[Rfam]
RNA sequence: AAACAGCCCCCUAUGUAUUGGAUCUUUGGCCCCCAGGCCACUUUUGACUUGGUUUUCGCUGAUGUGGCACCCACAUCCCUUAAGUGAGGUGCCACGUGUCGACCAUUGUGGGUGCCAUGUUAGCGAAGACCAAGUCAAAAGUGAUCUUGGGGCCAAAACUGCCAAAGAUCCAAUACAUAGGGGACUGUUU
Numbered sequence: 001a002a003a004c005a006g007c008c009c010c011c012u013a014u015g016u017a018u019u020g021g022a023u024c025u026u027u028g029g030c031c032c033c034c035a036g037g038c039c040a041c042u043u044u045u046g047a048c049u050u051g052g053u054u055u056u057c058g059c060u061g062a063u064g065u066g067g068c069a070c071c072c073a074c075a076u077c078c079c080u081u082a083a084g085u086g087a088g089g090u091g092c093c094a095c096g097u098g099u100c101g102a103c104c105a106u107u108g109u110g111g112g113u114g115c116c117a118u119g120u121u122a123g124c125g126a127a128g129a130c131c132a133a134g135u136c137a138a139a140a141g142u143g144a145u146c147u148u149g150g151g152g153c154c155a156a157a158a159c160u161g162c163c164a165a166a167g168a169u170c171c172a173a174u175a176c177a178u179a180g181g182g183g184a185c186u187g188u189u190u
Stems, first nucleotide, its partner, number of pairs: 001190002004187003008183001012179019031151003035147001062120002065117011

MIR2619 microRNA precursor family: a 190-nucleotide RNA sequence from Medicago truncatula. Taxonomically the source falls in Medicago (Eukaryota, Embryophyta, Magnoliopsida, eudicotyledons).